This 74-nucleotide RNA sequence from Oppiella nova belongs to the Rfam family "mir-8/mir-141/mir-200 microRNA precursor family". The organism belongs to Oppiella, within Eukaryota. The literature on the family includes a 2001 paper in Science by Lagos-Quintana et al., "Identification of novel genes coding for small expressed RNAs". Its family is annotated with RISC complex and miRNA-mediated post-transcriptional gene silencing in the Gene Ontology.
[Rfam]
RNA sequence: AAUGACAUCUUACCAGACAGCGUUAGAUUGCACCUACAUUUCAAUCUCUAAUACUGUCAGGUAAAGAUGUCCAU
Number, nucleotide and partner (000 for none) at each position: 001a000002a000003u000004g071005a070006c069007a068008u067009c066010u064011u063012a062013c061014c060015a000016g058017a057018c056019a055020g054021c000022g052023u051024u050025a049026g048027a047028u000029u000030g000031c000032a000033c000034c000035u000036a000037c000038a000039u000040u000041u000042c000043a000044a000045u000046c000047u027048c026049u025050a024051a023052u022053a000054c020055u019056g018057u017058c016059a000060g014061g013062u012063a011064a010065a000066g009067a008068u007069g006070u005071c004072c000073a000074u000